[Rfam]
RNA sequence: AUACAGCUAGAUCCAUACCCCUAAACUCCCUAGAUGAAGGACAACGGAACAUUCCGUUGUCCGCUUUUU
Numbered sequence: 001a002u003a004c005a006g007c008u009a010g011a012u013c014c015a016u017a018c019c020c021c022u023a024a025a026c027u028c029c030c031u032a033g034a035u036g037a038a039g040g041a042c043a044a045c046g047g048a049a050c051a052u053u054c055c056g057u058u059g060u061c062c063g064c065u066u067u068u069u
Stems, first nucleotide, its partner, number of pairs: 004036002007033003039062010
Source information
Shown here is a 69-nucleotide RNA from Mesobacillus selenatarsenatis, a member of the family "Listeria sRNA sbrA".